[Rfam]
The record is a 52-nucleotide sequence from Gossypium arboreum, which matches "Plastid-rps18 3UTR RNA" in Rfam. For this family Rfam cites "Retrograde signaling in plants: A critical review focusing on the GUN pathway and beyond" (Richter et al., Plant Commun, 2023). Pairs were carried over by alignment from the consensus structure, which was predicted with LocARNA. About the family: Plastid rps18 is a non-coding RNA (ncRNA) present in plastids. It was identified as a short stem-loop motif in the 3 prime untranslate region (3UTR) of rps18 gene.
RNA sequence: UGCAAGUAUUUUACGAUUCAGAAGCAACUGUUUCUUGUACAGAUUGUGUAUU
Numbered sequence: 001u002g003c004a005a006g007u008a009u010u011u012u013a014c015g016a017u018u019c020a021g022a023a024g025c026a027a028c029u030g031u032u033u034c035u036u037g038u039a040c041a042g043a044u045u046g047u048g049u050a051u052u
Stems, first nucleotide, its partner, number of pairs: 018037001020035006